Source information
The record is a 71-nucleotide RNA from Galemys pyrenaicus, which matches "Small nucleolar RNA Z40" in Rfam. The base pairs follow the family's consensus structure, which was predicted with PFOLD. The literature on the family includes a 2003 paper in Nucleic Acids Res by Chen et al., "The high diversity of snoRNAs in plants: identification and comparative study of 120 snoRNA genes from Oryza sativa".
RNA sequence: UGGUGUGAUGAUGAUGGGCAAGAGUUCAACUGCUCCGAGUAGGCUGAGCGAGAUGGCCUUUCUGAACAUGG
Numbered sequence: 001u002g003g004u005g006u007g008a009u010g011a012u013g014a015u016g017g018g019c020a021a022g023a024g025u026u027c028a029a030c031u032g033c034u035c036c037g038a039g040u041a042g043g044c045u046g047a048g049c050g051a052g053a054u055g056g057c058c059u060u061u062c063u064g065a066a067c068a069u070g071g
Stems, first nucleotide, its partner, number of pairs: 003069004